[Rfam]
Description:
A member of the RNA family "mir-393 microRNA precursor family" from Rhamnella rubrinervis, 115 nucleotides long. The literature on the family includes a 2012 paper in J Plant Physiol by Kruszka et al., "Role of microRNAs and other sRNAs of plants in their changing environments".
RNA sequence: GAUGGAAAAUUCCUAAGGGAUCGCAUGAUCCAAUAGAUGAACUAAAACAGCCAAAAAAAUACCGAUCAAAGUUUCGAUAUAAUUAGAUCAAUGCGAUCCCUUUGGAAGCCUCCAC
Numbered sequence: 001g002a003u004g005g006a007a008a009a010u011u012c013c014u015a016a017g018g019g020a021u022c023g024c025a026u027g028a029u030c031c032a033a034u035a036g037a038u039g040a041a042c043u044a045a046a047a048c049a050g051c052c053a054a055a056a057a058a059a060u061a062c063c064g065a066u067c068a069a070a071g072u073u074u075c076g077a078u079a080u081a082a083u084u085a086g087a088u089c090a091a092u093g094c095g096a097u098c099c100c101u102u103u104g105g106a107a108g109c110c111u112c113c114a115c
Stems, first nucleotide, its partner, number of pairs: 003114004010107004015102007023094003026090005